[Rfam]
A member of the RNA family "nrdJ RNA" from Streptomyces coelicoflavus, 85 nucleotides long. The family's RNA type in Rfam is small RNA.
RNA sequence: ACCUGUUGCGGGCGCGGCGAGAGAUGCCCGCAACACCAGACAGAACACCGUGCCCACGGGAACAAUCGGGGCACUUCAGGGCGUU
Dot-bracket structure: ...(((((((((((..........)))))))))))..............((((((.((........))))))))...........
Annotation: Pairs were carried over by alignment from the consensus structure, which is taken from published work. Lineage of the source: Bacteria > Bacillati > Kitasatosporales > Streptomycetaceae > Streptomyces coelicoflavus.